[Rfam]
RNA sequence: GCCAGGGACCUCUAAAGGGUCCCCAGAUCGCACCCGUAACACCAUUCGGGGCGGUCCGUGUCCUAACAGCCCACAAGGCGGUUCGACGAGGUUGCGACUGGAACGAAGUUGUCCUGAGGGACGGGGAAGCGAUCAACGUAUCAGCGAGAACGACAGGCACAGCACCAGCGUUCGCCCAGCGGCAUCCACGAGCCGGCUAGCGUCCGCAUCCUGCGCCCAGUCUCCGAACUGUUC
Numbered sequence: 001g002c003c004a005g006g007g008a009c010c011u012c013u014a015a016a017g018g019g020u021c022c023c024c025a026g027a028u029c030g031c032a033c034c035c036g037u038a039a040c041a042c043c044a045u046u047c048g049g050g051g052c053g054g055u056c057c058g059u060g061u062c063c064u065a066a067c068a069g070c071c072c073a074c075a076a077g078g079c080g081g082u083u084c085g086a087c088g089a090g091g092u093u094g095c096g097a098c099u100g101g102a103a104c105g106a107a108g109u110u111g112u113c114c115u116g117a118g119g120g121a122c123g124g125g126g127a128a129g130c131g132a133u134c135a136a137c138g139u140a141u142c143a144g145c146g147a148g149a150a151c152g153a154c155a156g157g158c159a160c161a162g163c164a165c166c167a168g169c170g171u172u173c174g175c176c177c178a179g180c181g182g183c184a185u186c187c188a189c190g191a192g193c194c195g196g197c198u199a200g201c202g203u204c205c206g207c208a209u210c211c212u213g214c215g216c217c218c219a220g221u222c223u224c225c226g227a228a229c230u231g232u233u234c
Stems, first nucleotide, its partner, number of pairs: 005023007027055004033050003038045001057152002061149002064146001069079003081137002085133001087131002114126002162169002173202003180195004211220002
A member of the RNA family "sRNA regulator of biofilms A" from Pseudomonas indica, 234 nucleotides long. On this family, see Taylor et al., PLoS One 2017: "A novel small RNA is important for biofilm formation and pathogenicity in Pseudomonas aeruginosa". By type it is a small RNA. The source organism's lineage runs through Bacteria, Pseudomonadati, Gammaproteobacteria, Pseudomonadales and Pseudomonas. Rfam describes the family as follows. Important for biofilm formation and pathogenicity.